[Rfam]
RNA: tRNA
Organism: Letharia lupina
RNA sequence: GGCCCAGUGGUCAAAUGGUUAAGACAUAAUGUUUUCACCAUUAUAGCACGGGUUCGAUUCCCGUCUGGGCUA
Numbered sequence: 001g002g003c004c005c006a007g008u009g010g011u012c013a014a015a016u017g018g019u020u021a022a023g024a025c026a027u028a029a030u031g032u033u034u035u036c037a038c039c040a041u042u043a044u045a046g047c048a049c050g051g052g053u054u055c056g057a058u059u060c061c062c063g064u065c066u067g068g069g070c071u072a
Stems, first nucleotide, its partner, number of pairs: 001071007010025003027043005048064005